[Rfam]
RNA sequence: GGAUCAAUGAUGACUCCCAAAAAUGAAUUCCUUGGAAAUCUGAACAAAAUGAAUGAGCAAUCCCUACCAUCUCCUCAUCGGAACUGAUGUCC
Number, nucleotide and partner (000 for none) at each position: 001g092002g091003a090004u089005c000006a000007a000008u000009g000010a000011u000012g000013a000014c000015u000016c000017c000018c000019a000020a000021a000022a000023a000024u000025g000026a000027a054028u053029u052030c051031c000032u047033u046034g045035g000036a000037a000038a000039u000040c000041u000042g000043a000044a000045c034046a033047a032048a000049a000050u000051g030052a029053a028054u027055g000056a000057g000058c000059a000060a000061u000062c000063c000064c000065u000066a000067c000068c000069a000070u000071c000072u000073c000074c000075u000076c000077a000078u000079c000080g000081g000082a000083a000084c000085u000086g000087a000088u000089g004090u003091c002092c001

Small nucleolar RNA SNORD116: a 92-nucleotide RNA from Physeter macrocephalus. The family's consensus secondary structure was predicted with PFOLD. The family's RNA type in Rfam is C/D-box small nucleolar RNA. It scores 84 bits against the family's covariance model. NCBI's taxonomy places the organism under Eukaryota, Dipnotetrapodomorpha, Eutheria, Physeteridae, Physeter. For this family Rfam cites "Identification of brain-specific and imprinted small nucleolar RNA genes exhibiting an unusual genomic organization" (Cavaille et al., Proc Natl Acad Sci U S A, 2000).